Rfam assigns this 59-nucleotide RNA sequence from Corynebacterium glutamicum to the family "msiK RNA". By type it is a cis-regulatory element. The family has 120 seed sequences and 1,374 matches in Rfam 15.1. The sequence is in the family's curated seed alignment.
RNA sequence: UUCACUGUUUCUCACACUACGGAUCGUUCGGCACGUACCUGCCGAUGGAGGAGAUUCUG
Numbered sequence: 001u002u003c004a005c006u007g008u009u010u011c012u013c014a015c016a017c018u019a020c021g022g023a024u025c026g027u028u029c030g031g032c033a034c035g036u037a038c039c040u041g042c043c044g045a046u047g048g049a050g051g052a053g054a055u056u057c058u059g
Stems, first nucleotide, its partner, number of pairs: 010051004015047002028045006